[Rfam]
RNA: Small nucleolar RNA SNORA75
Organism: Myotis brandtii
RNA sequence: GACUUCUCAAUGAGCUCCUUUCUGUCGCUCUGUGGCAGUUUAUGGAUUCGCACGAGAAGAAGAGACAAUUCACAGAGCUAGCAUUAUUUUGCCUCCUGUCUUCAGAGGUAUAUUCUGCUGUUUUGUGAGACAUUU
Numbered sequence: 001g002a003c004u005u006c007u008c009a010a011u012g013a014g015c016u017c018c019u020u021u022c023u024g025u026c027g028c029u030c031u032g033u034g035g036c037a038g039u040u041u042a043u044g045g046a047u048u049c050g051c052a053c054g055a056g057a058a059g060a061a062g063a064g065a066c067a068a069u070u071c072a073c074a075g076a077g078c079u080a081g082c083a084u085u086a087u088u089u090u091g092c093c094u095c096c097u098g099u100c101u102u103c104a105g106a107g108g109u110a111u112a113u114u115c116u117g118c119u120g121u122u123u124u125g126u127g128a129g130a131c132a133u134u135u
Stems, first nucleotide, its partner, number of pairs: 003059006014051002016046003022038005070128006092108004097104002